[Rfam]
RNA sequence: GCUAGCUCGGGCCGGGAGGAGCCGCAGCCGGAGGAGGGGGAGGAGGAAGAAGAGAAGGAAGAGGAGAGGGGGCCGCAGUGGCGACUCGGCGCUCGGAAGCCGGGCUCAUGGACGGGUGAGGCGGCGGUGUGCGCAGACAGUGCUCCAGCGCGCGCGCUCCCCAGCCCUGGCCCGGCCUCGGGCCGGGAGGAAGAGUAGCUCGCCGAGGCGCCGAGGAGAGCGGGCCGCCCCACAGCCCGAGCCGGAGAGGGACGCGAGCCGCGCGCCCCGGUCGGGCCUCCGAAACCAUGAACUUUCUGCUG
Numbered sequence: 001g002c003u004a005g006c007u008c009g010g011g012c013c014g015g016g017a018g019g020a021g022c023c024g025c026a027g028c029c030g031g032a033g034g035a036g037g038g039g040g041a042g043g044a045g046g047a048a049g050a051a052g053a054g055a056a057g058g059a060a061g062a063g064g065a066g067a068g069g070g071g072g073c074c075g076c077a078g079u080g081g082c083g084a085c086u087c088g089g090c091g092c093u094c095g096g097a098a099g100c101c102g103g104g105c106u107c108a109u110g111g112a113c114g115g116g117u118g119a120g121g122c123g124g125c126g127g128u129g130u131g132c133g134c135a136g137a138c139a140g141u142g143c144u145c146c147a148g149c150g151c152g153c154g155c156g157c158u159c160c161c162c163a164g165c166c167c168u169g170g171c172c173c174g175g176c177c178u179c180g181g182g183c184c185g186g187g188a189g190g191a192a193g194a195g196u197a198g199c200u201c202g203c204c205g206a207g208g209c210g211c212c213g214a215g216g217a218g219a220g221c222g223g224g225c226c227g228c229c230c231c232a233c234a235g236c237c238c239g240a241g242c243c244g245g246a247g248a249g250g251g252a253c254g255c256g257a258g259c260c261g262c263g264c265g266c267c268c269c270g271g272u273c274g275g276g277c278c279u280c281c282g283a284a285a286c287c288a289u290g291a292a293c294u295u296u297c298u299g300c301u302g
Base pairs, nucleotide, nucleotide: 002036003035006033007032008031010029011028012027013024014023015022048301049300051298052297054295055294057287058286061280062279063278064277069269070268071267072266073265075264076263078262079261080260081259082258089255090254091253093252094251101239102238103237104236105235106234109232110231111230114162115161116160118159119158120157121155122154123153124151125150127149128147129146131143132142133141134140164229165227169226170225171224172223173222174221176216177215178214179213180212181211182209183207185204186203187201188200189199

A member of the RNA family "Vascular endothelial growth factor (VEGF) IRES A", 302 nucleotides long. The literature on the family includes a 1998 paper in Mol Cell Biol by Huez et al., "Two independent internal ribosome entry sites are involved in translation initiation of vascular endothelial growth factor mRNA". Gene Ontology term of the family: ribosome binding. It is annotated as an internal ribosome entry site. This family represents the vascular endothelial growth factor (VEGF) internal ribosome entry site (IRES) A. VEGF is an endothelial cell mitogen with many crucial functions such as embryogenic development and wound healing. The base pairs follow the family's consensus structure, which is taken from published work.